[Rfam]
RNA sequence: GCACAACGGGGAAGCGAUGACCCGCCGGGCGCAAUUGGUCGCCUUAGCCCGGCGGUGAGCAGAGGCGAAACCGGCCCGUUCCUUU
Number, nucleotide and partner (000 for none) at each position: 001g085002c000003a083004c000005a000006a080007c000008g000009g077010g076011g075012a000013a000014g060015c059016g000017a000018u000019g000020a000021c000022c055023c054024g053025c052026c051027g050028g049029g048030c000031g000032c000033a000034a000035u000036u000037g072038g071039u068040c067041g066042c065043c064044u000045u000046a000047g000048c029049c028050c027051g026052g025053c024054g023055g022056u000057g000058a000059g015060c014061a000062g000063a000064g043065g042066c041067g040068a039069a000070a000071c038072c037073g000074g000075c011076c010077c009078g000079u000080u006081c000082c000083u003084u000085u001
RNA: c-di-GMP-II-GAG riboswitch aptamer